[Rfam]
RNA sequence: GCUGCUGCUCACACCCGCUGCCGGUGCCCAGCCCCGGACCUGAUCACUUGGCGCUGUCAGUGGGUGCGAGCGGUGGCUG
Numbered sequence: 001g002c003u004g005c006u007g008c009u010c011a012c013a014c015c016c017g018c019u020g021c022c023g024g025u026g027c028c029c030a031g032c033c034c035c036g037g038a039c040c041u042g043a044u045c046a047c048u049u050g051g052c053g054c055u056g057u058c059a060g061u062g063g064g065u066g067c068g069a070g071c072g073g074u075g076g077c078u079g
Stems, first nucleotide, its partner, number of pairs: 004074007012066009022056007
mir-9198 microRNA precursor family: a 79-nucleotide sequence from Cnephaeus nilssonii.
The match comes from Rfam's covariance-model search (94 bits).
Rfam 15.1 lists 64 matches to the family in 7 species.
The base pairs follow the family's consensus structure, which was predicted with RNAalifold.